[Rfam]
RNA: Glutamine riboswitch aptamer (glnA leader)
RNA sequence: AUCGUUCAUCUCCCUAGGGAGACGCAAAAGUCUGACUGAAGGAACGGAAA
Numbered sequence: 001a002u003c004g005u006u007c008a009u010c011u012c013c014c015u016a017g018g019g020a021g022a023c024g025c026a027a028a029a030g031u032c033u034g035a036c037u038g039a040a041g042g043a044a045c046g047g048a049a050a
Base pairs, nucleotide, nucleotide: 003046004045005044006043007042009022010021011020012019013018025047029037030036031035